Nucleotides: 493
Base pairs, nucleotide, nucleotide: 001432002431003430004429005428006427011024013022014021015020027168028167029166030165031164032163033162041121042120043119044118045117046116047115053109054107055106060103061102062101065098067096068095069094073092074091075090076089077088079086123149124148125147126146128144129143130142131141174198175197176196177195179193180192181191182190183189203214204213205212218395219394220393221392222391224389228385229384230383237382239381242378243377244376262356263355264354266353267352268351269350270349271348272347273346274345275344283340284339285338286337287336289313290312291311295307296306314318319334323332324331396422397421398420399419400418401417402416403415404414433488435485436484437483438482439481440480441479442478444477445476452472453471458467459466460465
Number, partner (000 for none) and nucleotide at each position: 001432u002431c003430c004429g005428c006427c007000g008000a009000a010000g011024u012000u013022u014021c015020c016000c017000u018000c019000a020015g021014g022013a023000u024011a025000g026000c027168a028167g029166u030165g031164u032163u033162g034000a035000u036000c037000c038000c039000a040000g041121u042120u043119u044118u045117a046116u047115g048000a049000g050000g051000u052000a053109a054107a055106g056000c057000g058000a059000a060103u061102g062101a063000u064000u065098a066000g067096g068095g069094a070000c071000u072000c073092g074091g075090g076089g077088g078000c079086g080000c081000u082000a083000u084000a085000u086079u087000g088077c089076c090075u091074u092073c093000a094069u095068c096067c097000a098065u099000u100000c101062u102061c103060a104000a105000a106055c107054u108000u109053u110000a111000a112000a113000u114000a115047u116046g117045u118044a119043a120042g121041a122000a123149g124148u125147c126146c127000c128144c129143g130142u131141u132000u133000c134000u135000u136000a137000a138000c139000u140000g141131a142130a143129c144128g145000c146126g147125g148124a149123c150000g151000c152000u153000g154000g155000a156000a157000u158000g159000u160000c161000a162033c163032a164031a165030c166029a167028c168027u169000a170000g171000u172000g173000g174198g175197c176196c177195a178000u179193u180192u181191u182190u183189g184000g185000u186000a187000a188000g189183c190182a191181g192180a193179a194000c195177u196176g197175g198174c199000g200000a201000u202000g203214c204213g205212g206000g207000a208000u209000g210000a211000a212205c213204c214203g215000a216000a217000c218395g219394c220393g221392a222391g223000g224389u225000u226000a227000a228385g229384g230383u231000g232000c233000c234000g235000g236000a237382g238000u239381g240000g241000a242378c243377g244376c245000u246000c247000a248000u249000c250000a251000g252000a253000c254000a255000c256000c257000a258000c259000a260000a261000a262356a263355g264354g265000u266353g267352u268351u269350a270349g271348u272347a273346c274345a275344u276000c277000u278000u279000g280000a281000c282000a283340g284339c285338a286337g287336g288000a289313c290312g291311g292000u293000g294000g295307c296306c297000a298000u299000g300000g301000a302000a303000g304000u305000c306296g307295g308000a309000a310000u311291c312290c313289g314318c315000u316000a317000a318314g319334g320000a321000c322000u323332g324331u325000g326000u327000a328000a329000c330000a331324a332323c333000u334319c335000a336287c337286c338285u339284g340283c341000c342000g343000a344275a345274u346273g347272u348271a349270c350269u351268a352267g353266c354264c355263c356262u357000g358000a359000a360000a361000a362000u363000g364000g365000a366000u367000g368000g369000c370000g371000c372000u373000c374000a375000a376244g377243c378242g379000u380000c381239c382237c383230a384229c385228c386000c387000a388000u389224a390000c391222c392221u393220c394219g395218c396422c397421c398420u399419c400418g401417g402416c403415g404414c405000u406000g407000g408000c409000u410000c411000g412000g413000c414404g415403c416402g417401c418400c419399g420398a421397g422396g423000a424000g425000u426000a427006g428005g429004c430003g431002g432001a433488c434000g435485u436484g437483g438482a439481g440480g441479u442478c443000g444477g445476u446000g447000a448000c449000g450000a451000a452472g453471c454000c455000u456000a457000g458467g459466g460465c461000g462000u463000g464000a465460g466459c467458c468000c469000g470000g471453g472452u473000g474000g475000a476445a477444c478442g479441g480440c481439c482438u483437c484436u485435a486000g487000u488433g489000c490000a491000g492000a493000u
The family of this 493-nucleotide part of an RNA from Plectosphaerella cucumerina is "Eukaryotic large subunit ribosomal RNA".
It scores 3323 bits against the family's covariance model.